[Rfam]
RNA sequence: AACGAGGUAUAGUUCUGUUUUUUUGUGGCAUGUUAAGUCAAAGAAGUCCUGAGUAAACACGAUGUCGUUGAAUACCGCUUCUCUGCCGAACCUUAUAUUAGUGCCUCAAGCAGUAAUGUCUCAGUUUUAUCUAAGUUGCGCCUGCGGGCGAAGAAAACAAUUUAAGGAAUUUGUAAAUGGCAAAGAUCACAGGUCAAGUUAAGUGGUUCAACGAGUCUAAAGGCUUUGGUUUCAUCACUCCGGCCGAUGGCAGCAAAGAUGUGUUCGUACACUUCUCUGCUAUCCAGGGCAACGGUUUCAAAACGCUGGCCGAAGGUCAGAAAGUUGAAUUUGAAAUUCAGGACGGCCAGAAGGGCCCGGCAGCCGUUAACGUGGUCGCCAUCUGAUAAUUUUGCGCAACCGCUAUGGUUGCAGGUUAGUGAAACCCCGCAGCUUCCAUCAUAUUGGGCGCGGGGUUUUUU
Number, nucleotide and partner (000 for none) at each position: 001a000002a000003c000004g021005a020006g019007g018008u017009a016010u000011a000012g000013u000014u000015c000016u009017g008018u007019u006020u005021u004022u000023u000024u000025g000026u000027g000028g241029c000030a000031u000032g238033u237034u000035a000036a000037g000038u000039c000040a000041a000042a232043g000044a000045a231046g230047u229048c228049c223050u222051g000052a000053g000054u220055a000056a000057a000058c000059a000060c000061g217062a216063u215064g000065u000066c213067g212068u211069u210070g209071a208072a000073u000074a207075c206076c205077g000078c000079u000080u179081c000082u177083c000084u175085g174086c173087c000088g000089a000090a000091c167092c166093u165094u164095a163096u000097a161098u000099u000100a000101g127102u000103g000104c000105c000106u000107c000108a000109a000110g000111c000112a000113g000114u000115a000116a000117u000118g000119u000120c000121u000122c000123a000124g000125u000126u000127u101128u000129a000130u000131c000132u000133a000134a000135g000136u000137u000138g000139c000140g149141c148142c147143u000144g000145c000146g000147g142148g141149c140150g000151a000152a000153g000154a000155a000156a000157a000158c000159a000160a000161u097162u000163u095164a094165a093166g092167g091168a000169a000170u000171u000172u000173g086174u085175a084176a000177a082178u000179g080180g000181c193182a000183a000184a000185g000186a000187u000188c000189a000190c000191a000192g000193g181194u000195c000196a000197a000198g000199u000200u000201a000202a000203g000204u000205g076206g075207u074208u071209c070210a069211a068212c067213g066214a000215g063216u062217c061218u000219a000220a054221a000222g050223g049224c000225u000226u000227u000228g048229g047230u046231u045232u042233c000234a000235u000236c000237a033238c032239u000240c000241c028242g000243g000244c000245c000246g338247a337248u336249g000250g000251c000252a000253g000254c000255a000256a000257a000258g266259a265260u000261g000262u000263g000264u000265u259266c258267g000268u000269a000270c000271a325272c324273u323274u322275c000276u321277c320278u319279g318280c316281u315282a000283u000284c309285c308286a307287g306288g000289g000290c000291a000292a000293c000294g000295g000296u000297u000298u000299c000300a000301a000302a000303a000304c000305g000306c287307u286308g285309g284310c000311c000312g000313a000314a000315g281316g280317u000318c279319a278320g277321a276322a274323a273324g272325u271326u000327g000328a000329a000330u000331u000332u000333g000334a000335a000336a248337u247338u246339c000340a000341g000342g000343a000344c359345g358346g357347c000348c354349a000350g000351a000352a000353g000354g348355g000356c000357c346358c345359g344360g000361c385362a384363g383364c000365c378366g377367u000368u375369a000370a000371c000372g000373u000374g000375g368376u000377c366378g365379c000380c000381a000382u000383c363384u362385g361386a000387u000388a000389a409390u408391u407392u000393u000394g403395c402396g401397c000398a000399a000400c000401c396402g395403c394404u000405a000406u000407g391408g390409u389410u000411g000412c000413a000414g000415g000416u000417u000418a000419g000420u000421g459422a458423a457424a456425c455426c454427c453428c452429g451430c450431a000432g000433c000434u000435u000436c000437c000438a000439u000440c000441a000442u000443a000444u000445u000446g000447g000448g000449c000450g430451c429452g428453g427454g426455g425456u424457u423458u422459u421460u000461u000
Record summary: This 461-nucleotide sequence from Jejuibacter calystegiae belongs to the Rfam family "cspA thermoregulator". The literature on the family includes a 2010 paper in Mol Cell by Giuliodori et al., "The cspA mRNA is a thermosensor that modulates translation of the cold-shock protein CspA". Lineage of the source: Bacteria > Pseudomonadota > Gammaproteobacteria > Enterobacterales > Jejuibacter. Its family is annotated with response to temperature stimulus and regulation of translation in the Gene Ontology.